[Rfam]
RNA sequence: UCCAGUGGUAGUCAGCUGUCCAGAGCAAUACUGUGCCUGUGAUAGUGUUACACUGCUGGGAGAUCAAGGUCAGUCAUUUCUUCUGGCUGCUGUUGUCCCCGCUCUGGAGACAGCUGAGGCCAAAAAGAAGUGUCCCUGUGCUUCCCUGAGAGCGCGCUAGAGGUUUCCUUUCCCUCUGUAGUGCUAGUCUGGGAGCAGACAUG
Numbered sequence: 001u002c003c004a005g006u007g008g009u010a011g012u013c014a015g016c017u018g019u020c021c022a023g024a025g026c027a028a029u030a031c032u033g034u035g036c037c038u039g040u041g042a043u044a045g046u047g048u049u050a051c052a053c054u055g056c057u058g059g060g061a062g063a064u065c066a067a068g069g070u071c072a073g074u075c076a077u078u079u080c081u082u083c084u085g086g087c088u089g090c091u092g093u094u095g096u097c098c099c100c101g102c103u104c105u106g107g108a109g110a111c112a113g114c115u116g117a118g119g120c121c122a123a124a125a126a127g128a129a130g131u132g133u134c135c136c137u138g139u140g141c142u143u144c145c146c147u148g149a150g151a152g153c154g155c156g157c158u159a160g161a162g163g164u165u166u167c168c169u170u171u172c173c174c175u176c177u178g179u180a181g182u183g184c185u186a187g188u189c190u191g192g193g194a195g196c197a198g199a200c201a202u203g
Stems, first nucleotide, its partner, number of pairs: 001060009011051002015046006021039003068136002071132002074128002082124001084122005090116001092114001094112004099107002139197007154184003158178006
The family of this 203-nucleotide RNA sequence from Onychorhynchus coronatus is "Small nucleolar RNA SNORA74". Its family is annotated with nucleolus and RNA processing in the Gene Ontology. Lineage of the source: Eukaryota > Chordata > Gnathostomata > Saurischia > Onychorhynchus. For this family Rfam cites "Human U19 intron-encoded snoRNA is processed from a long primary transcript that possesses little potential for protein coding" (Bortolin and Kiss, RNA, 1998). Its Rfam clan is "SNORA74 clan".